[Rfam]
The record is a 77-nucleotide sequence from Gouania willdenowi, which matches "mir-182 microRNA precursor family" in Rfam. The source organism's lineage runs through Eukaryota, Eumetazoa, Eurypterygia, Ctenosquamata and Gouania. Its Rfam clan is "mir-182 clan".
RNA sequence: UGCAGUGUUUGGCAAUGGUAGAACUCACUCUGGUGGUUCUAAAGGAUCCGGUGGUUCUAGACUUGCCAACAACUGCC
Numbered sequence: 001u002g003c004a005g006u007g008u009u010u011g012g013c014a015a016u017g018g019u020a021g022a023a024c025u026c027a028c029u030c031u032g033g034u035g036g037u038u039c040u041a042a043a044g045g046a047u048c049c050g051g052u053g054g055u056u057c058u059a060g061a062c063u064u065g066c067c068a069a070c071a072a073c074u075g076c077c
Base pairs, nucleotide, nucleotide: 002076003075004074005073006072009069010068011067012066013065014064015063019059020058021057022056023055024054028053030051031050032049033048